[Rfam]
RNA sequence: AAAAAAAAAGCCCUGCACGUAUACGGCGCAGGGCUCUUCUCAUGCCAGAACCACGUUCUGAUCGAGAAGAAUAAGGGAGAGGAGAAACCGGAGGAAGAACUUAUGGGGAAACGUAAGUCUUCGCCACGG
Numbered sequence: 001a002a003a004a005a006a007a008a009a010g011c012c013c014u015g016c017a018c019g020u021a022u023a024c025g026g027c028g029c030a031g032g033g034c035u036c037u038u039c040u041c042a043u044g045c046c047a048g049a050a051c052c053a054c055g056u057u058c059u060g061a062u063c064g065a066g067a068a069g070a071a072u073a074a075g076g077g078a079g080a081g082g083a084g085a086a087a088c089c090g091g092a093g094g095a096a097g098a099a100c101u102u103a104u105g106g107g108g109a110a111a112c113g114u115a116a117g118u119c120u121u122c123g124c125c126a127c128g129g
Stems, first nucleotide, its partner, number of pairs: 011033006018026001034077005043065001090125002094122004099118005
Rfam assigns this 129-nucleotide RNA sequence from Aureibacillus halotolerans to the family "ylbH leader". This family is a putative regulatory RNA structure that is found upstream of the ylbH gene in B. subtilis and related low GC Gram-positive bacteria. It scores 82 bits against the family's covariance model. The literature on the family includes a 2004 paper in Proc Natl Acad Sci U S A by Barrick et al., "New RNA motifs suggest an expanded scope for riboswitches in bacterial genetic control". The pairing is the family consensus, mapped onto this sequence. It is annotated as a cis-regulatory leader.